Shown here is a 96-nucleotide RNA sequence from Lutibacter sp. HS1-25, a member of the family "Flavo-1 RNA".
By type it is a small RNA.
A search with the family's covariance model found it, with a score of 52 bits.
The base pairs follow the family's consensus structure, which is taken from published work.
Taxonomically the source falls in Lutibacter (Bacteria, Pseudomonadati, Flavobacteriia, Flavobacteriales).
[Rfam]
RNA sequence: UUUUAUUAAAAUGCGUUAGGGAUUGCAGCGGCAUCCUUUUUUACAAUGCAACGCAGUGGAAUUGUAAUAAAGAUAUAGCGGAAAGCCCGACCCACA
Dot-bracket structure: ..................(((.((...((...(((...(.((((((...............)))))).)..)))...))...)).)))........